[Rfam]
RNA sequence: GUGCAUCCAAUAGGAAUUGAACCCACGAAUUCGCCAAUUAUGAGUUAAGCGUUUUAACCAUUCAACCAUGGAUAC
Numbered sequence: 001g002u003g004c005a006u007c008c009a010a011u012a013g014g015a016a017u018u019g020a021a022c023c024c025a026c027g028a029a030u031u032c033g034c035c036a037a038u039u040a041u042g043a044g045u046u047a048a049g050c051g052u053u054u055u056a057a058c059c060a061u062u063c064a065a066c067c068a069u070g071g072a073u074a075c
Stems, first nucleotide, its partner, number of pairs: 003075001005073004011025001013023002040069003044066003048062002051059001

Record summary: Plastid-ycf2 5UTR RNA: a 75-nucleotide RNA sequence from Gossypium stocksii. The match comes from Rfam's covariance-model search (82 bits). The family's RNA type in Rfam is cis-regulatory element. NCBI's taxonomy places the organism under Eukaryota, Tracheophyta, Pentapetalae, Malvaceae, Gossypium. Plastid ycf2 is a non-coding RNA (ncRNA) recognised in plastids.